The family of this 144-nucleotide RNA sequence from Halalkalibacter krulwichiae is "PyrR binding site". The family has 41 seed sequences and 1,498 matches in Rfam 15.1. Rfam describes the family as follows. This family represents the PyrR binding site and terminator structure.
RNA sequence: GGUACCUUUAAUUCAGUCCUGUGAGGCUGACAAGGUAGGUCGUACAGAUAAGGGGUUUUUUGUGUUAUUCACUCAAAACCUUGUCUAACUAUGCGUAUCUAGGUUUCUUGUCAGCAAAAAAGGUUGAUAAGAAACCUUUUUUGU
Numbered sequence: 001g002g003u004a005c006c007u008u009u010a011a012u013u014c015a016g017u018c019c020u021g022u023g024a025g026g027c028u029g030a031c032a033a034g035g036u037a038g039g040u041c042g043u044a045c046a047g048a049u050a051a052g053g054g055g056u057u058u059u060u061u062g063u064g065u066u067a068u069u070c071a072c073u074c075a076a077a078a079c080c081u082u083g084u085c086u087a088a089c090u091a092u093g094c095g096u097a098u099c100u101a102g103g104u105u106u107c108u109u110g111u112c113a114g115c116a117a118a119a120a121a122g123g124u125u126g127a128u129a130a131g132a133a134a135c136c137u138u139u140u141u142u143g144u
Stems, first nucleotide, its partner, number of pairs: 003037006013030006052082008101137015